RNA sequence: AUUGGAUCGAUGAUGUUCAUUAUGAACUGCGUUAUCUAUCUGAAACUUCCUUAUUGGAAUUGAAGAAGUCUAUAAACACAUUCUGAGAUCUUGU
Numbered sequence: 001a002u003u004g005g006a007u008c009g010a011u012g013a014u015g016u017u018c019a020u021u022a023u024g025a026a027c028u029g030c031g032u033u034a035u036c037u038a039u040c041u042g043a044a045a046c047u048u049c050c051u052u053a054u055u056g057g058a059a060u061u062g063a064a065g066a067a068g069u070c071u072a073u074a075a076a077c078a079c080a081u082u083c084u085g086a087g088a089u090c091u092u093g094u
Base pairs, nucleotide, nucleotide: 001094002093004091005090006089007088
Dot-bracket structure: ((.((((................................................................................)))).))
A member of the RNA family "Small nucleolar RNA snoR27" from Ricinus communis, 94 nucleotides long. It is one of the family's seed sequences. Lineage of the source: Eukaryota > Spermatophyta > Malpighiales > Acalyphoideae > Ricinus. The base pairs follow the family's consensus structure, which was predicted with WAR. Its Rfam clan is "snR68 clan".